Rfam assigns this 67-nucleotide RNA sequence from Dysgonomonas gade to the family "DUF805 RNA". Pairs were carried over by alignment from the consensus structure, which is taken from published work.
Nucleotides: 067
Base pairs, nucleotide, nucleotide: 006023007022008021009020034050035049036048041061042060
Number, partner (000 for none) and nucleotide at each position: 001000a002000u003000u004000a005000u006023a007022u008021g009020g010000a011000g012000u013000u014000c015000a016000g017000a018000g019000a020009c021008c022007a023006u024000a025000c026000a027000c028000a029000a030000a031000c032000g033000a034050g035049g036048c037000g038000g039000a040000c041061c042060c043000g044000a045000a046000a047000a048036g049035c050034c051000a052000u053000a054000u055000g056000a057000g058000u059000a060042g061041g062000a063000a064000c065000u066000u067000a
Taxonomically the source falls in Dysgonomonas gade (Bacteria, Bacteroidota, Bacteroidales, Dysgonomonas).